Rfam assigns this 133-nucleotide RNA sequence from Pseudochrobactrum saccharolyticum to the family "Alphaproteobacterial sRNA ar7". It scores 79 bits against the family's covariance model. A reference for the family is del Val et al. (2012), "A survey of sRNA families in alpha-proteobacteria", RNA Biol. NCBI's taxonomy places the organism under Bacteria, Pseudomonadota, Alphaproteobacteria, Brucellaceae, Pseudochrobactrum. The base pairs follow the family's consensus structure.

RNA sequence: UAUCGACAACAUUGUCGGUUUCCGUUUUUCGGCAUGUCCCCCGCCGGAAAACCGGGGUGGUAGCCUCCCCCCCCCUCUGGCUGCCACCAUUUAUUACAAGCCGUUACGGUUCCCCUCACCGUAACGGCUUUUG
Numbered sequence: 001u002a003u004c005g006a007c008a009a010c011a012u013u014g015u016c017g018g019u020u021u022c023c024g025u026u027u028u029u030c031g032g033c034a035u036g037u038c039c040c041c042c043g044c045c046g047g048a049a050a051a052c053c054g055g056g057g058u059g060g061u062a063g064c065c066u067c068c069c070c071c072c073c074c075c076u077c078u079g080g081c082u083g084c085c086a087c088c089a090u091u092u093a094u095u096a097c098a099a100g101c102c103g104u105u106a107c108g109g110u111u112c113c114c115c116u117c118a119c120c121g122u123a124a125c126g127g128c129u130u131u132u133g
Stems, first nucleotide, its partner, number of pairs: 021055002024052004031045003056088010098129001101127010